[Rfam]
A member of the RNA family "mir-959 microRNA precursor family" from Drosophila willistoni, 93 nucleotides long.
RNA sequence: UUUUGUUCUAUAUUCUUAGUACUCGGGUUGAUAAAGACAAAAUGUUUACCAAGUGCCUUUGUCAUCGGGGGUAUUAUGAAAUAUAGCUCAAAA
Numbered sequence: 001u002u003u004u005g006u007u008c009u010a011u012a013u014u015c016u017u018a019g020u021a022c023u024c025g026g027g028u029u030g031a032u033a034a035a036g037a038c039a040a041a042a043u044g045u046u047u048a049c050c051a052a053g054u055g056c057c058u059u060u061g062u063c064a065u066c067g068g069g070g071g072u073a074u075u076a077u078g079a080a081a082u083a084u085a086g087c088u089c090a091a092a093a
Base pairs, nucleotide, nucleotide: 001093002092003091004090005089008086009085010084011083012082013081014080015078017076018075019074020073021072022071023070024069027066029064030063031062032061033060034059035058036057038055043048

The match comes from Rfam's covariance-model search (91 bits).